[Rfam]
RNA: Ribosomal protein L20 leader
RNA sequence: ACGGACAAGUUGAAGCUCCCGCUUCACACCCUUAGCCAACGGUAAACGGGUUUUCGGGAAUGGGCACUAUUAGUGUCUUUUCAGUGAGCGGGUGCAGCUAUGCACUCGCUCUUUUUUGUUCGU
Numbered sequence: 001a002c003g004g005a006c007a008a009g010u011u012g013a014a015g016c017u018c019c020c021g022c023u024u025c026a027c028a029c030c031c032u033u034a035g036c037c038a039a040c041g042g043u044a045a046a047c048g049g050g051u052u053u054u055c056g057g058g059a060a061u062g063g064g065c066a067c068u069a070u071u072a073g074u075g076u077c078u079u080u081u082c083a084g085u086g087a088g089c090g091g092g093u094g095c096a097g098c099u100a101u102g103c104a105c106u107c108g109c110u111c112u113u114u115u116u117u118g119u120u121c122g123u
Stems, first nucleotide, its partner, number of pairs: 011026006028051003033046001035043002087110010